This 63-nucleotide RNA sequence from Cnephaeus nilssonii belongs to the Rfam family "mir-9242 microRNA precursor family".
Rfam links the family to the GO terms RISC complex and miRNA-mediated post-transcriptional gene silencing.
A search with the family's covariance model found it, with a score of 62 bits.
RNA sequence: GGCCUCCCUCUCUGGGGCGAUUGAUUGUAGGGCUCCGUGAUCAAUUGCCCCAAGAGGGAGGCC
Dot-bracket structure: (((((((((((.((((((((((((((((.(....).)))))))))))))))))))))))))))